Notes: Shown here is a 139-nucleotide sequence from Lingula anatina, a member of the family "Small nucleolar RNA SNORA79". Rfam 15.1 lists 944 matches to the family in 375 species. For this family Rfam cites "A computational screen for mammalian pseudouridylation guide H/ACA RNAs" (Schattner et al., RNA, 2006). ACA65 (SNORA79) is a member of the H/ACA class of snoRNAs that guide the sites of modification of uridines to pseudouridines. A search with the family's covariance model found it, with a score of 58 bits. Lineage of the source: Eukaryota > Brachiopoda > Lingulida > Linguloidea > Lingula.
[Rfam]
RNA sequence: UGAUGACGUUCCCUAUGCAUUUCGAAGAAUAAAUGUAUGGUUUUAGUUCAUCAGAGAGAAAAGUGAAUUCUUCACCCACCCUCGACUUUCACAGUUGGUACUGUGCCGUGCGGGGAUGGAUUUGCGGGUUCAGACAUUU
Numbered sequence: 001u002g003a004u005g006a007c008g009u010u011c012c013c014u015a016u017g018c019a020u021u022u023c024g025a026a027g028a029a030u031a032a033a034u035g036u037a038u039g040g041u042u043u044u045a046g047u048u049c050a051u052c053a054g055a056g057a058g059a060a061a062a063g064u065g066a067a068u069u070c071u072u073c074a075c076c077c078a079c080c081c082u083c084g085a086c087u088u089u090c091a092c093a094g095u096u097g098g099u100a101c102u103g104u105g106c107c108g109u110g111c112g113g114g115g116a117u118g119g120a121u122u123u124g125c126g127g128g129u130u131c132a133g134a135c136a137u138u139u
Base pairs, nucleotide, nucleotide: 001053002052003051004050005049006048007046013040014039015038016037017036019034020033021032022031065131066130067129068128069127070126076119077118078117080115081114082113083112084111090105091104092103093102